Overview: A member of the RNA family "TPP riboswitch aptamer (THI element)" from Xylophilus rhododendri, 110 nucleotides long. From the family's description: Vitamin B(1) in its active form thiamin pyrophosphate (TPP) is an essential coenzyme that is synthesised by coupling of pyrimidine and thiazole moieties in bacteria. The organism belongs to Xylophilus, within Bacteria.

[Rfam]
RNA sequence: CGCCCCGCUCCGGGGUGCAUGGAACGACAUGCUGAGACGGCAAUACCUUUUGCCAAACCCGCGAACUUGAACCGGCUAGUACCGGCGUAAGAAGAGCUGCAGUUCCCUGG
Numbered sequence: 001c002g003c004c005c006c007g008c009u010c011c012g013g014g015g016u017g018c019a020u021g022g023a024a025c026g027a028c029a030u031g032c033u034g035a036g037a038c039g040g041c042a043a044u045a046c047c048u049u050u051u052g053c054c055a056a057a058c059c060c061g062c063g064a065a066c067u068u069g070a071a072c073c074g075g076c077u078a079g080u081a082c083c084g085g086c087g088u089a090a091g092a093a094g095a096g097c098u099g100c101a102g103u104u105c106c107c108u109g110g
Base pairs, nucleotide, nucleotide: 007097008096009095010094011061012060013059014058016055017032018031019030020029021028039054040053041052042051043050066091067090068089069088072085073084074083075082